[Rfam]
RNA: Small nucleolar RNA SNORA71
RNA sequence: ACCUGCAUUCAAAAGUGAUUCUGGUCUUGCCUGUGACCUGGUCAUUGAUAGUGCAGGGAGAGGAGCUUGUGAAAGCUUUUUCCCGUGUUUGGGGGGCUCGUUCCUAUCCCUACCAAACCGUGUAACUUUCAGACA
Numbered sequence: 001a002c003c004u005g006c007a008u009u010c011a012a013a014a015g016u017g018a019u020u021c022u023g024g025u026c027u028u029g030c031c032u033g034u035g036a037c038c039u040g041g042u043c044a045u046u047g048a049u050a051g052u053g054c055a056g057g058g059a060g061a062g063g064a065g066c067u068u069g070u071g072a073a074a075g076c077u078u079u080u081u082c083c084c085g086u087g088u089u090u091g092g093g094g095g096g097c098u099c100g101u102u103c104c105u106a107u108c109c110c111u112a113c114c115a116a117a118c119c120g121u122g123u124a125a126c127u128u129u130c131a132g133a134c135a
Base pairs, nucleotide, nucleotide: 002057003056004055005054006053007052008051009050014046015045016044017043018042019041020040023038024037025036026035068132070131071130072129073128074127075126087118088117089116090115091114093111094110095109096108